[Rfam]
RNA sequence: CUUGAGCGAGCUCAGCCACAGCGGCUCGUCGCCCGCCCGCUGCUGCCCGUACGUGGCGAGCAGCGCCUGUGCCUC
Numbered sequence: 001c002u003u004g005a006g007c008g009a010g011c012u013c014a015g016c017c018a019c020a021g022c023g024g025c026u027c028g029u030c031g032c033c034c035g036c037c038c039g040c041u042g043c044u045g046c047c048c049g050u051a052c053g054u055g056g057c058g059a060g061c062a063g064c065g066c067c068u069g070u071g072c073c074u075c
Stems, first nucleotide, its partner, number of pairs: 014026004033069001038065002043060002047056003
RNA: ASpks TB sRNA